Overview
The record is a 116-nucleotide RNA from Anisodus acutangulus, which matches "Small nucleolar RNA snoR104" in Rfam. By type it is an H/ACA-box small nucleolar RNA. Rfam 15.1 lists 612 matches to the family in 228 species. It scores 100 bits against the family's covariance model.
RNA sequence: AGGGAGCAUCUAUGAGGUAAGAUGUUACCCGAUACAAUCUUCCCACAGUAAAACUCUGUCAUAAUCUGCUUGAGGUACUUGAGAGUUCUUCAAGCUGUUGAUCAGGAGGCACAUAG
Number, nucleotide and partner (000 for none) at each position: 001a000002g029003g028004g000005a026006g025007c024008a023009u022010c021011u020012a000013u000014g000015a000016g000017g000018u000019a000020a011021g010022a009023u008024g007025u006026u005027a000028c003029c002030c000031g000032a000033u000034a000035c000036a000037a000038u000039c000040u000041u000042c000043c000044c000045a000046c000047a000048g000049u000050a000051a000052a000053a000054c000055u109056c108057u107058g000059u000060c000061a000062u000063a000064a000065u000066c000067u000068g095069c094070u093071u092072g091073a090074g089075g088076u000077a086078c085079u084080u000081g000082a000083g000084a079085g078086u077087u000088c075089u074090u073091c072092a071093a070094g069095c068096u000097g000098u000099u000100g000101a000102u000103c000104a000105g000106g000107a057108g056109g055110c000111a000112c000113a000114u000115a000116g000